The record is a 104-nucleotide RNA from Anaerobacterium chartisolvens, which matches "SAM riboswitch aptamer (S box leader)" in Rfam.
[Rfam]
RNA sequence: ACCUUAUCAAGAGAGGUGGAGGGACUGGGCCCUGUGAAACCCGGCAACCGGCUAGAGCAUCGGUGCCAAUUCCUGCAGGAUUUUUCUAUCCUGGAAGAUGAGGA
Numbered sequence: 001a002c003c004u005u006a007u008c009a010a011g012a013g014a015g016g017u018g019g020a021g022g023g024a025c026u027g028g029g030c031c032c033u034g035u036g037a038a039a040c041c042c043g044g045c046a047a048c049c050g051g052c053u054a055g056a057g058c059a060u061c062g063g064u065g066c067c068a069a070u071u072c073c074u075g076c077a078g079g080a081u082u083u084u085u086c087u088a089u090c091c092u093g094g095a096a097g098a099u100g101a102g103g104a
Base pairs, nucleotide, nucleotide: 002103003102004101005100006099007098008097013042015041016040017039021032022031023030026075027074028073029072043067044066045065046064048063049062051058052057071096076093077092078091079090080089081088
Background: The match comes from Rfam's covariance-model search (90 bits).